[Rfam]
RNA sequence: UAUAAACAAUCGCUGAAUUCUUAGGAAGCGGGGGAACCAUAUAAGGGCUAUUGAUUUAGCCCAAUGGGGUGAAUCACAGCGUGUGACGGGUUAUUUCUUUCGACCCGAAUCCGACAGCUAACCUCGCAGGCGUUGAAAGGAGGGGGA
Numbered sequence: 001u002a003u004a005a006a007c008a009a010u011c012g013c014u015g016a017a018u019u020c021u022u023a024g025g026a027a028g029c030g031g032g033g034g035a036a037c038c039a040u041a042u043a044a045g046g047g048c049u050a051u052u053g054a055u056u057u058a059g060c061c062c063a064a065u066g067g068g069g070u071g072a073a074u075c076a077c078a079g080c081g082u083g084u085g086a087c088g089g090g091u092u093a094u095u096u097c098u099u100u101c102g103a104c105c106c107g108a109a110u111c112c113g114a115c116a117g118c119u120a121a122c123c124u125c126g127c128a129g130g131c132g133u134u135g136a137a138a139g140g141a142g143g144g145g146g147a
Stems, first nucleotide, its partner, number of pairs: 011132004018027003028127006038066002067112003075085004088106004
The record is a 147-nucleotide RNA from Desulfosporosinus acididurans, which matches "c-di-AMP riboswitch aptamer (ydaO/yuaA leader)" in Rfam. Rfam links the family to the GO terms cyclic-di-AMP binding and regulation of gene expression.